A member of the RNA family "Group II catalytic intron D1-D4-1" from Fonticella tunisiensis, 85 nucleotides long. The match comes from Rfam's covariance-model search (71 bits). Taxonomically the source falls in Fonticella (Bacteria, Bacillota, Clostridia, Eubacteriales). Group II introns are found in rRNA, tRNA and mRNA of organelles in fungi, plants and protists, and also in mRNA in bacteria. On this family, see Bonen and Vogel, Trends Genet 2001: "The ins and outs of group II introns".
RNA sequence: UAACCUACCCAGUGAUGGAUAGCUGAACUGUUAGAAGUCAGCAGAGGUCAUAGUACUGUGAGAUACGCGUUAUCACGGGAAGGAC
Dot-bracket structure: ((..(((.(((....))).))).))............((....)).(((......((((((...........))))))....)))